[Rfam]
RNA: SAM riboswitch aptamer (S box leader)
RNA sequence: UAUUCAUCCAGACCGACUGAGGGACAGGCCCAGUGACGUCGGGGCAACCACUUAGGUAUUCGUUACCAAGGAAAGGUGCCAACUCCUGCGGGGAUUAUGUCUCCGAGAGAUGAACC
Numbered sequence: 001u002a003u004u005c006a007u008c009c010a011g012a013c014c015g016a017c018u019g020a021g022g023g024a025c026a027g028g029c030c031c032a033g034u035g036a037c038g039u040c041g042g043g044g045c046a047a048c049c050a051c052u053u054a055g056g057u058a059u060u061c062g063u064u065a066c067c068a069a070g071g072a073a074a075g076g077u078g079c080c081a082a083c084u085c086c087u088g089c090g091g092g093g094a095u096u097a098u099g100u101c102u103c104c105g106a107g108a109g110a111u112g113a114a115c116c
Base pairs, nucleotide, nucleotide: 003114004113005112006111007110008109013042014041015040016039017038021031022030023029025088026087027086028085043080044079045078046077048076049075051071052070053069084108089105090104091103092102093101094100